RNA sequence: CAGGUUGUUACCGUUUCAAUAUCUCGUAACAAAGGCCGGGUCUAUCGGUAACGAAAACCCG
Numbered sequence: 001c002a003g004g005u006u007g008u009u010a011c012c013g014u015u016u017c018a019a020u021a022u023c024u025c026g027u028a029a030c031a032a033a034g035g036c037c038g039g040g041u042c043u044a045u046c047g048g049u050a051a052c053g054a055a056a057a058c059c060c061g
Stems, first nucleotide, its partner, number of pairs: 005032007013025001037061005043055001045054003
Pseudomonas sRNA P36: a 61-nucleotide RNA from Pseudomonas sp. THAF187a. The family has 2 seed sequences and 53 matches in Rfam 15.1. Taxonomically the source falls in Pseudomonas (Bacteria, Pseudomonadati, Pseudomonadota, Pseudomonadales).